[Rfam]
The family of this 88-nucleotide RNA from Medicago truncatula is "MIR2617 microRNA precursor family". The family's consensus secondary structure was predicted with RNAalifold.

RNA sequence: AAGUAGUUUGACAUGCCCGUUUUGGUGUUAAACUCUGAUGUUAUAUUUUUUAUUUAAUUGUUUUGGGAUAACGGGGUGUUACAUGAAA
Numbered sequence: 001a002a003g004u005a006g007u008u009u010g011a012c013a014u015g016c017c018c019g020u021u022u023u024g025g026u027g028u029u030a031a032a033c034u035c036u037g038a039u040g041u042u043a044u045a046u047u048u049u050u051u052a053u054u055u056a057a058u059u060g061u062u063u064u065g066g067g068a069u070a071a072c073g074g075g076g077u078g079u080u081a082c083a084u085g086a087a088a
Stems, first nucleotide, its partner, number of pairs: 004086001006084002009081006016075006
Annotation:
The match comes from Rfam's covariance-model search (49 bits). Gene Ontology terms of the family: RISC complex and miRNA-mediated post-transcriptional gene silencing.